[Rfam]
Shown here is a 169-nucleotide RNA from Photobacterium damselae, a member of the family "sok antitoxin (CssrC)". Also identified in Shigella as CssrC.

RNA sequence: GGGUGCUCUUGGCUUUUCUGCCAUGAGCAUAGUAGCGUUCAGCUUGUGGUAGAAAAGACGAAAGCCCCGAAAGUUAAAUAUCUUUAACCAACGAGGCUCAAAUCAUGUUCAUAAGCAAAACUGAUUUUAGUCUCUAUUUAAUUAAGGGGCAAGCAAUAUGCUACGAAAG
Numbered sequence: 001g002g003g004u005g006c007u008c009u010u011g012g013c014u015u016u017u018c019u020g021c022c023a024u025g026a027g028c029a030u031a032g033u034a035g036c037g038u039u040c041a042g043c044u045u046g047u048g049g050u051a052g053a054a055a056a057g058a059c060g061a062a063a064g065c066c067c068c069g070a071a072a073g074u075u076a077a078a079u080a081u082c083u084u085u086a087a088c089c090a091a092c093g094a095g096g097c098u099c100a101a102a103u104c105a106u107g108u109u110c111a112u113a114a115g116c117a118a119a120a121c122u123g124a125u126u127u128u129a130g131u132c133u134c135u136a137u138u139u140a141a142u143u144a145a146g147g148g149g150c151a152a153g154c155a156a157u158a159u160g161c162u163a164c165g166a167a168a169g
Stems, first nucleotide, its partner, number of pairs: 001068003005065003011059001013057003017053008027043002069092001073088006093134005100127005107121003138160001142156002
Dot-bracket structure: (((.(((...(.(((.((((((((..((.............))..)))))))).))).)...))))))(...((((((....))))))...)(((((..(((((..(((.........))).)))))..)))))...(...((...........))...).........
The source organism's lineage runs through Bacteria, Gammaproteobacteria, Vibrionaceae, Photobacterium damselae and Photobacterium damselae subsp. damselae. A reference for the family is Kawano et al. (2007), "An antisense RNA controls synthesis of an SOS-induced toxin evolved from an antitoxin", Mol Microbiol. It is annotated as an antitoxin RNA. The family's consensus secondary structure is taken from published work.